[Rfam]
RNA sequence: GCAGACCCACUCUGCACCUGACUGCACUUCCAGGCGGGUGCUUUUUCUGUCUGCCACAUAAACAUUUCAGGGUGCUGUGGUGGCCACCUGACCUAUCCAGGGAGAUGCAGCUGCCUGGGGACACAGGU
Dot-bracket structure: ((((((.......(((((((.(((......))).))))))).......))))))...........((((((..((((((....(..((...........))..).))))))..)))))).........
Numbered sequence: 001g002c003a004g005a006c007c008c009a010c011u012c013u014g015c016a017c018c019u020g021a022c023u024g025c026a027c028u029u030c031c032a033g034g035c036g037g038g039u040g041c042u043u044u045u046u047c048u049g050u051c052u053g054c055c056a057c058a059u060a061a062a063c064a065u066u067u068c069a070g071g072g073u074g075c076u077g078u079g080g081u082g083g084c085c086a087c088c089u090g091a092c093c094u095a096u097c098c099a100g101g102g103a104g105a106u107g108c109a110g111c112u113g114c115c116u117g118g119g120g121a122c123a124c125a126g127g128u
Stems, first nucleotide, its partner, number of pairs: 001054006014041007022033003066119006074111006084104001087101002

Rfam assigns this 128-nucleotide sequence from Callithrix jacchus to the family "Small nucleolar RNA SNORA77". Lineage of the source: Eukaryota > Deuterostomia > Mammalia > Primates > Callithrix. Rfam's curators write: ACA63 (SNORA77) is a member of the H/ACA class of snoRNAs that guide the sites of modification of uridines to pseudouridines. This snoRNA was identified by computational screening and its expression in mouse experimentally verified by Northern blot and primer extension analysis. ACA63 is proposed to guide the pseudouridylation of 18S rRNA U814.